A member of the RNA family "Alphaproteobacteria transfer-messenger RNA", 353 nucleotides long. The family's RNA type in Rfam is non-coding RNA gene. Clan: tRNA clan. The family's consensus secondary structure is taken from published work. Bacterial tmRNA, also known as 10Sa RNA or SsrA, is named for its dual tRNA and mRNA-like properties. Its role is to liberate the mRNA from a stalled ribosome.
RNA sequence: CCCAUUGAACCCGCCUGCAAACGCGCCUAUAUUGGGCGUGUCUGGCAACAGACUAUGAACAUAAACGCGCUCGUAAUACGCGGAUCGGACCCGGGGGCGGUACCCGGCCACUCCACCAAUACCCCCGCUCAUUUGGCGGCCUUGGGGUGGAAAUAGGAUCGACGAACGUCUAAAGGGGUUAGCUUUGUUUCGGCGGUCUGCCACCGUUACCGGCGAAAACAGUACAAUUGCAAAUGACAAUCGUGCUCCGAUGGCUCUUGCCGCGUAAGCGGUCGGAAAUAUCGAAACUUAAGCCCUUGCGCCUAGCAGCGUAAGGCGGGGUUCGCAGGCACCUGGCAACAGAAGCCUGCACA
Numbered sequence: 001c002c003c004a005u006u007g008a009a010c011c012c013g014c015c016u017g018c019a020a021a022c023g024c025g026c027c028u029a030u031a032u033u034g035g036g037c038g039u040g041u042c043u044g045g046c047a048a049c050a051g052a053c054u055a056u057g058a059a060c061a062u063a064a065a066c067g068c069g070c071u072c073g074u075a076a077u078a079c080g081c082g083g084a085u086c087g088g089a090c091c092c093g094g095g096g097g098c099g100g101u102a103c104c105c106g107g108c109c110a111c112u113c114c115a116c117c118a119a120u121a122c123c124c125c126c127g128c129u130c131a132u133u134u135g136g137c138g139g140c141c142u143u144g145g146g147g148u149g150g151a152a153a154u155a156g157g158a159u160c161g162a163c164g165a166a167c168g169u170c171u172a173a174a175g176g177g178g179u180u181a182g183c184u185u186u187g188u189u190u191c192g193g194c195g196g197u198c199u200g201c202c203a204c205c206g207u208u209a210c211c212g213g214c215g216a217a218a219a220c221a222g223u224a225c226a227a228u229u230g231c232a233a234a235u236g237a238c239a240a241u242c243g244u245g246c247u248c249c250g251a252u253g254g255c256u257c258u259u260g261c262c263g264c265g266u267a268a269g270c271g272g273u274c275g276g277a278a279a280u281a282u283c284g285a286a287a288c289u290u291a292a293g294c295c296c297u298u299g300c301g302c303c304u305a306g307c308a309g310c311g312u313a314a315g316g317c318g319g320g321g322u323u324c325g326c327a328g329g330c331a332c333c334u335g336g337c338a339a340c341a342g343a344a345g346c347c348u349g350c351a352c353a
Stems, first nucleotide, its partner, number of pairs: 040053005057190005067183002069179004081168002085165003091107005108150007191206003197216002200214003319334004325350006